The record is a 58-nucleotide RNA from Panagrellus redivivus, which matches "mir-7910 microRNA precursor family" in Rfam. The source organism's lineage runs through Eukaryota, Metazoa, Eumetazoa, Bilateria and Panagrellus.
RNA sequence: UUUGAAAUGGUUCAGCUCCUAUUCAAGGCGCGGUUUGAUUAGGACUUGCAUUUCAAAU
Numbered sequence: 001u002u003u004g005a006a007a008u009g010g011u012u013c014a015g016c017u018c019c020u021a022u023u024c025a026a027g028g029c030g031c032g033g034u035u036u037g038a039u040u041a042g043g044a045c046u047u048g049c050a051u052u053u054c055a056a057a058u
Base pairs, nucleotide, nucleotide: 001057002056003055004054005053006052007051008050009049013048014047015046017044018043019042020041021040023038024037025036026035027034